[Rfam]
Notes:
A member of the RNA family "mir-9229 microRNA precursor family" from Myotis myotis, 76 nucleotides long. The base pairs follow the family's consensus structure, which was predicted with RNAalifold.
RNA sequence: GAGACACCCUUAUGGGGCAAGACUUGCUUCAUUGGGGCUUUUGUGCUCACAGAGUCUGCCCCCUGAGUGUGUCCUU
Dot-bracket structure: (.(((((.((((.((((((.(((.....((..((((((....)).))))..))))))))))).)))).))))).).
Rfam links the family to the GO terms miRNA-mediated post-transcriptional gene silencing and RISC complex.